[Rfam]
RNA: EcpR1
RNA sequence: AAACCCCAUGGAAUGCUCAGGUCCGCCGCAUCUCCUGGGUCCGUGGGGCGGUCGGUCGGCAGCGUGCAGAAUCGGUUUCCUCGUACCGUGGCGCGACUGCCGGCCGGCCAACCG
Numbered sequence: 001a002a003a004c005c006c007c008a009u010g011g012a013a014u015g016c017u018c019a020g021g022u023c024c025g026c027c028g029c030a031u032c033u034c035c036u037g038g039g040u041c042c043g044u045g046g047g048g049c050g051g052u053c054g055g056u057c058g059g060c061a062g063c064g065u066g067c068a069g070a071a072u073c074g075g076u077u078u079c080c081u082c083g084u085a086c087c088g089u090g091g092c093g094c095g096a097c098u099g100c101c102g103g104c105c106g107g108c109c110a111a112c113c114g
Stems, first nucleotide, its partner, number of pairs: 004048007016039006050109011